[Rfam]
RNA sequence: UCUGCGGGCCGGGCCCCUCUGGCGCGGUGCAGGACAUGAUUUCUGCAUCUCGUGAUGUCGGACCGCAUCG
Dot-bracket structure: .....((.((((.........(((.(.(((((((......))))))).).)))....)))).))......
Shown here is a 70-nucleotide RNA from Novosphingobium barchaimii, a member of the family "terC RNA".
It is annotated as a cis-regulatory element.